[Rfam]
RNA sequence: GGAGCCAUAGGGAGGGAUUCCAGUCCAGCCUUAAAAGAAACCUGCCACAGGAAUCUUGGAGAUUGGCAACCAUCCUAAUGACUUA
Numbered sequence: 001g002g003a004g005c006c007a008u009a010g011g012g013a014g015g016g017a018u019u020c021c022a023g024u025c026c027a028g029c030c031u032u033a034a035a036a037g038a039a040a041c042c043u044g045c046c047a048c049a050g051g052a053a054u055c056u057u058g059g060a061g062a063u064u065g066g067c068a069a070c071c072a073u074c075c076u077a078a079u080g081a082c083u084u085a
Base pairs, nucleotide, nucleotide: 002084003083004082006080007079008078010076011075012074013073015071016070018068020066021065022064023063024062025061029059030058035057036056037055038054041051042050043049044048
RNA: mir-9014 microRNA precursor family